[Rfam]
Lysine riboswitch aptamer: a 173-nucleotide sequence from Colwellia sp. PAMC 20917.
RNA sequence: AGGGCCAGAAGAGGAGCAUUAACCAGGUAGUUAUCAUAAAGAGAUCAAGCUCUAAUGAUUGGUAACGAGGGGGAUUAAUGCCGAGGUAAGUAAUUUUUUUGAUAAUUUACUUAUCGGUUGUUUGGGUUGAAUCCUAACAAUUGUCACCAACUUGGUGGGGAGCUUCUGGCCUU
Numbered sequence: 001a002g003g004g005c006c007a008g009a010a011g012a013g014g015a016g017c018a019u020u021a022a023c024c025a026g027g028u029a030g031u032u033a034u035c036a037u038a039a040a041g042a043g044a045u046c047a048a049g050c051u052c053u054a055a056u057g058a059u060u061g062g063u064a065a066c067g068a069g070g071g072g073g074a075u076u077a078a079u080g081c082c083g084a085g086g087u088a089a090g091u092a093a094u095u096u097u098u099u100u101g102a103u104a105a106u107u108u109a110c111u112u113a114u115c116g117g118u119u120g121u122u123u124g125g126g127u128u129g130a131a132u133c134c135u136a137a138c139a140a141u142u143g144u145c146a147c148c149a150a151c152u153u154g155g156u157g158g159g160g161a162g163c164u165u166c167u168g169g170c171c172u173u
Base pairs, nucleotide, nucleotide: 006168007167008166009165010164011163016081017080018079019078020077021076022075024073030066031065032064033063034062035061036060085115086114087113088112089111090110091109092108093107095105096104116142117141118140119139120138121137122136124135125134126133144158145157146156147155148154149153